CRISPR RNA direct repeat element: a 30-nucleotide sequence from Halolamina salifodinae. The organism belongs to Halolamina, within Archaea.
RNA sequence: GUUUCAGACGAACUCUCGUGGGGUUAAAGA
Numbered sequence: 001g002u003u004u005c006a007g008a009c010g011a012a013c014u015c016u017c018g019u020g021g022g023g024u025u026a027a028a029g030a
Stems, first nucleotide, its partner, number of pairs: 011025005